The family of this 118-nucleotide RNA sequence from Xylanimonas cellulosilytica is "SAM (S-adenosyl methionine) riboswitch aptamer".
The match comes from Rfam's covariance-model search (80 bits).
The source organism's lineage runs through Bacteria, Actinomycetes, Micrococcales, Promicromonosporaceae and Xylanimonas cellulosilytica.
About the family: SAM-IV is a mRNA element that regulates gene expression via direct sensing of S-adenosylmethionine (SAM or AdoMet). SAM-IV riboswitches share conserved nucleotide positions with the previously described SAM-I riboswitches sequence analysis and molecular recognition experiments suggest that SAM-I and SAM-IV riboswitches share similar ligand binding sites, but have different scaffolds.

RNA sequence: GGUCAAGAGUGAUCAGCGAUACGCCCUCCGCGUGCUGGUCCGGCAACCGCGCACUCUCGCGCACGGUGCCUCGGGGGAAGACCGGCCCGUCGGCGACCGCCGUCGGGAAGUGCGAAGG
Numbered sequence: 001g002g003u004c005a006a007g008a009g010u011g012a013u014c015a016g017c018g019a020u021a022c023g024c025c026c027u028c029c030g031c032g033u034g035c036u037g038g039u040c041c042g043g044c045a046a047c048c049g050c051g052c053a054c055u056c057u058c059g060c061g062c063a064c065g066g067u068g069c070c071u072c073g074g075g076g077g078a079a080g081a082c083c084g085g086c087c088c089g090u091c092g093g094c095g096a097c098c099g100c101c102g103u104c105g106g107g108a109a110g111u112g113c114g115a116a117g118g
Stems, first nucleotide, its partner, number of pairs: 001083004009041001012039006022032002042070003047066003051060002086107004091102004